[Rfam]
Rfam assigns this 81-nucleotide RNA from Gadus morhua to the family "mir-194 microRNA precursor family".
RNA sequence: GGGUCUCACCAGCUGUAACAGCAUCUCCAUAUGGAUGAGUGUCUGGUGUCCAGUGGAGCUGCUGUUAUCUGUGGAGGGACG
Numbered sequence: 001g002g003g004u005c006u007c008a009c010c011a012g013c014u015g016u017a018a019c020a021g022c023a024u025c026u027c028c029a030u031a032u033g034g035a036u037g038a039g040u041g042u043c044u045g046g047u048g049u050c051c052a053g054u055g056g057a058g059c060u061g062c063u064g065u066u067a068u069c070u071g072u073g074g075a076g077g078g079a080c081g
Base pairs, nucleotide, nucleotide: 009074010073011072015068016067017066018065019064020063021062022061025058026057027056028055029054030053032052033051034050
Taxonomically the source falls in Gadus (Eukaryota, Actinopteri, Neoteleostei, Gadariae). Rfam links the family to the GO terms miRNA-mediated post-transcriptional gene silencing and RISC complex. A reference for the family is Lagos-Quintana et al. (2003), "New microRNAs from mouse and human", RNA.